[Rfam]
This 412-nucleotide RNA from Tsuneonella aeria belongs to the Rfam family "Bacterial RNase P class A". Its family is annotated with ribonuclease P activity, dimeric ribonuclease P complex and tRNA processing in the Gene Ontology. Pairs were carried over by alignment from the consensus structure, which is taken from published work. The organism belongs to Tsuneonella, within Bacteria. Rfam classes the family as a ribozyme.
RNA sequence: CCAGGGGGCCGGGCAGCCGCGUCGCUCGCCAGAGCGCCGAGGAAAGUCCGGGCUCCACGAAACAAGGGUGGCGGGUAACACCCGCCGGGCCGGGAACUUCGGUUUCAGGCCAAGGGACAGUGCCACAGAGAGCAGACCGCCUCCGCGCGAGCGGCGGCAAGGGUGAAAGGGUGCGGCAAGAGCGCACCGGGGUCCUGGCAACAGGGCCCGCACGGCAAACCCCACCCGGAGCAAGGCCAAAUAGGGGCCUCGCGCCCCCACGGGGGCAGGGAUGUUUCGUCCCGAGAGGCCCGGGUUGGCUGCUUGAGCGCACGUGGCAACACGUCGCCUAGAUGAAUGGCUGCCCCGGCGGCGCUGGUCCCCUGGGAUACCGGCCGCCGGACAGAACCCGGCUUACAGGCCCCCUGGUAAC
Numbered sequence: 001c002c003a004g005g006g007g008g009c010c011g012g013g014c015a016g017c018c019g020c021g022u023c024g025c026u027c028g029c030c031a032g033a034g035c036g037c038c039g040a041g042g043a044a045a046g047u048c049c050g051g052g053c054u055c056c057a058c059g060a061a062a063c064a065a066g067g068g069u070g071g072c073g074g075g076u077a078a079c080a081c082c083c084g085c086c087g088g089g090c091c092g093g094g095a096a097c098u099u100c101g102g103u104u105u106c107a108g109g110c111c112a113a114g115g116g117a118c119a120g121u122g123c124c125a126c127a128g129a130g131a132g133c134a135g136a137c138c139g140c141c142u143c144c145g146c147g148c149g150a151g152c153g154g155c156g157g158c159a160a161g162g163g164u165g166a167a168a169g170g171g172u173g174c175g176g177c178a179a180g181a182g183c184g185c186a187c188c189g190g191g192g193u194c195c196u197g198g199c200a201a202c203a204g205g206g207c208c209c210g211c212a213c214g215g216c217a218a219a220c221c222c223c224a225c226c227c228g229g230a231g232c233a234a235g236g237c238c239a240a241a242u243a244g245g246g247g248c249c250u251c252g253c254g255c256c257c258c259c260a261c262g263g264g265g266g267c268a269g270g271g272a273u274g275u276u277u278c279g280u281c282c283c284g285a286g287a288g289g290c291c292c293g294g295g296u297u298g299g300c301u302g303c304u305u306g307a308g309c310g311c312a313c314g315u316g317g318c319a320a321c322a323c324g325u326c327g328c329c330u331a332g333a334u335g336a337a338u339g340g341c342u343g344c345c346c347c348g349g350c351g352g353c354g355c356u357g358g359u360c361c362c363c364u365g366g367g368a369u370a371c372c373g374g375c376c377g378c379c380g381g382a383c384a385g386a387a388c389c390c391g392g393c394u395u396a397c398a399g400g401c402c403c404c405c406u407g408g409u410a411a412c
Stems, first nucleotide, its partner, number of pairs: 001408010011397001012345007020039002023036005044395003048392005053231004062277001064275001066227005071085005086114001088111003115222002120220002122216003137162002139158003143154004170188006189211001190209008235301004245292006269283005308328003312325005